Shown here is a 75-nucleotide RNA sequence from Oryctolagus cuniculus, a member of the family "Small nucleolar RNA SNORD59". On this family, see Galardi et al., Mol Cell Biol 2002: "Purified box C/D snoRNPs are able to reproduce site-specific 2'-O-methylation of target RNA in vitro". A search with the family's covariance model found it, with a score of 83 bits. The family's consensus secondary structure was predicted with ILM. Rfam 15.1 lists 1,355 matches to the family in 620 species. Clan: SNORD59 clan. Gene Ontology terms of the family: nucleolus and RNA processing.
[Rfam]
RNA sequence: CUUUCUAUGAUGAUUUUAUCAAAAUGACUUUCGUUCUUCUGAGUCUGCUGAAGCCAUGUUUCGAUACUGAGAAGG
Number, nucleotide and partner (000 for none) at each position: 001c075002u074003u073004u000005c071006u000007a000008u000009g000010a000011u000012g000013a000014u000015u000016u000017u000018a000019u000020c000021a000022a000023a000024a000025u000026g000027a000028c000029u000030u000031u000032c000033g000034u000035u000036c000037u000038u000039c000040u000041g000042a000043g000044u000045c000046u000047g000048c000049u000050g000051a000052a000053g000054c000055c000056a000057u000058g000059u000060u000061u000062c000063g000064a000065u000066a000067c000068u000069g000070a000071g005072a000073a003074g002075g001